The record is a 150-nucleotide sequence from Veronia pacifica, which matches "FMN riboswitch aptamer (RFN element)" in Rfam. Rfam describes the family as follows. The RFN element is a highly conserved domain that is found frequently in the 5'-untranslated regions of prokaryotic mRNAs that encode for flavin mononucleotide (FMN) biosynthesis and transport proteins.

RNA sequence: AUGAAUUCUCAGGGCGGGGUGGAAUUCCCCACCGGCGGUAAUGCAUUUUGUGCGCAGCCCGCGAGCGCCUGCAUGCGAUUUUGUGCAGGGUCAGCAGAUCUGGUGUAACUCCAGAGCCGACGGUUAAAGUCCGGAUGAGAGAGAAUCAGU
Dot-bracket structure: ....((((((......(((.......))).[[((((((..................[[))))..((...........................))...(((((.......)))))]])).(((.....]]))).......))))))....
It scores 118 bits against the family's covariance model.